[Rfam]
RNA sequence: AAAAUUAUAACUAGUACGCCUCUUUCCGAGCUUUUUAAAUCACUUUUAAUCUUUCAAAAUAAGAAAGACUUUAUUUAUAAUUACUUAACAAAUGAUUAAGUUUGGUGCGUCCGAGUGGACUUGAACCACCGACCCCCACCA
Numbered sequence: 001a002a003a004a005u006u007a008u009a010a011c012u013a014g015u016a017c018g019c020c021u022c023u024u025u026c027c028g029a030g031c032u033u034u035u036u037a038a039a040u041c042a043c044u045u046u047u048a049a050u051c052u053u054u055c056a057a058a059a060u061a062a063g064a065a066a067g068a069c070u071u072u073a074u075u076u077a078u079a080a081u082u083a084c085u086u087a088a089c090a091a092a093u094g095a096u097u098a099a100g101u102u103u104g105g106u107g108c109g110u111c112c113g114a115g116u117g118g119a120c121u122u123g124a125a126c127c128a129c130c131g132a133c134c135c136c137c138a139c140c141a
Base pairs, nucleotide, nucleotide: 012037013036014035018031019030021028052067053066054065103138104137105136107134112131113130115129116128117127118126
Background
This 141-nucleotide RNA sequence from Sodalis sp. Fse belongs to the Rfam family "Bacterial antisense RNA HPnc0260". Pairs were carried over by alignment from the consensus structure, which was predicted with CMfinder. For this family Rfam cites "The primary transcriptome of the major human pathogen Helicobacter pylori" (Sharma et al., Nature, 2010). It scores 68 bits against the family's covariance model.